[Rfam]
RNA sequence: CUUCUGUCCGUCAAAAUGAAGCACCUAGGGUUCAAAGGUGUGGGUUUGACGAGAAGAAUGUCCGGUGAAACACAGCCUGGGAUUAACCUCCCCAGACUGGGAUAUUACCCGGA
Numbered sequence: 001c002u003u004c005u006g007u008c009c010g011u012c013a014a015a016a017u018g019a020a021g022c023a024c025c026u027a028g029g030g031u032u033c034a035a036a037g038g039u040g041u042g043g044g045u046u047u048g049a050c051g052a053g054a055a056g057a058a059u060g061u062c063c064g065g066u067g068a069a070a071c072a073c074a075g076c077c078u079g080g081g082a083u084u085a086a087c088c089u090c091c092c093c094a095g096a097c098u099g100g101g102a103u104a105u106u107a108c109c110c111g112g113a
Stems, first nucleotide, its partner, number of pairs: 002058003009051007021041006061113005073099003077095005